Description:
The family of this 87-nucleotide sequence from Enterococcus rivorum is "RNA anti-toxin A". NCBI's taxonomy places the organism under Bacteria, Bacillota, Bacilli, Lactobacillales, Enterococcus. Rfam 15.1 lists 190 matches to the family in 120 species. Gene Ontology terms of the family: negative regulation of translation and mRNA binding. Pairs were carried over by alignment from the consensus structure, which was predicted with RNAalifold. The literature on the family includes a 2010 paper in Nucleic Acids Res by Fozo et al., "Abundance of type I toxin-antitoxin systems in bacteria: searches for new candidates and discovery of novel families". It scores 69 bits against the family's covariance model.

RNA sequence: UAAUGAAAUAGAAAAAGAGGAUAUGCGUUAACAUAUCCUCUUUUGUAGAACCGUUUAAGACGGCAGCAAGUUUUUAUAGGUUAAAAA
Numbered sequence: 001u002a003a004u005g006a007a008a009u010a011g012a013a014a015a016a017g018a019g020g021a022u023a024u025g026c027g028u029u030a031a032c033a034u035a036u037c038c039u040c041u042u043u044u045g046u047a048g049a050a051c052c053g054u055u056u057a058a059g060a061c062g063g064c065a066g067c068a069a070g071u072u073u074u075u076a077u078a079g080g081u082u083a084a085a086a087a
Stems, first nucleotide, its partner, number of pairs: 022035004051063005